[Rfam]
RNA sequence: UUUAUUUUUCUAGUUGUAGGACUUCCAUUCAGCCAGCUUUCAGGCUGGUCUGAAUGAUGAUAGUUCUAUAUUUUAGUUGUAAU
Dot-bracket structure: .((((....((((.(((((((((..(((((((((.(((....))).)).))))))).....)))))))))..))))..)))).

A member of the RNA family "mir-9236 microRNA precursor family" from Eptesicus fuscus, 83 nucleotides long. The source organism's lineage runs through Eukaryota, Tetrapoda, Laurasiatheria, Vespertilionidae and Eptesicus. Rfam 15.1 lists 348 matches to the family in 7 species.